[Rfam]
RNA sequence: GCACUGGUUUAGCUCAGUGGUUACUUCAAUUCUCUUUGCCGAAUUAACUCUUCCGGUAACACGGGAUCGAACCACGGGCGCUGUCCAUUGUUUUU
Numbered sequence: 001g002c003a004c005u006g007g008u009u010u011a012g013c014u015c016a017g018u019g020g021u022u023a024c025u026u027c028a029a030u031u032c033u034c035u036u037u038g039c040c041g042a043a044u045u046a047a048c049u050c051u052u053c054c055g056g057u058a059a060c061a062c063g064g065g066a067u068c069g070a071a072c073c074a075c076g077g078g079c080g081c082u083g084u085c086c087a088u089u090g091u092u093u094u095u
Stems, first nucleotide, its partner, number of pairs: 002090002005087003012079004017075004025071003029067001

Annotation: This 95-nucleotide RNA from Cottoperca gobio belongs to the Rfam family "Vault RNA". This family of RNAs are found as part of the enigmatic vault ribonucleoprotein complex. The complex consists of a major vault protein (MVP), two minor vault proteins (VPARP and TEP1), and several small untranslated RNA molecules. It has been suggested that the vault complex is involved in drug resistance. Rfam 15.1 lists 2,873 matches to the family in 431 species.